[Rfam]
RNA sequence: AACCACACUAUCAAUGAAUGGAUUCAUCCGCGAGAUGACGCGGCUAUUUCACAUAGGACGAGGAUGUGUCAUCCUAUUAUCAGCCAUCGCACGAAAUUAAUAGGAUAUGCCACGUCAUCAUCCUAGAUGGAACAACCAUGUCAAAAUAUAUGUGAAACUAAACUAUCAAAAUAUAUGUGGUU
Dot-bracket structure: (((((((.(.(..((...(.(.(((((..(.(...((((..((.(.((..(..((.((....(((....((((((((((......((........))))))))))..))....)))....)).))..)..)).).))..))))...).)..))))).)..)...))..).)....)))))))

This 182-nucleotide RNA sequence from Oryza meridionalis belongs to the Rfam family "MIR807 microRNA precursor family". A reference for the family is Luo et al. (2006), "Rice embryogenic calli express a unique set of microRNAs, suggesting regulatory roles of microRNAs in plant post-embryogenic development", FEBS Lett. Pairs were carried over by alignment from the consensus structure, which was predicted with WAR. Rfam links the family to the GO terms miRNA-mediated post-transcriptional gene silencing and RISC complex. The source organism's lineage runs through Eukaryota, Embryophyta, Petrosaviidae, Oryzinae and Oryza.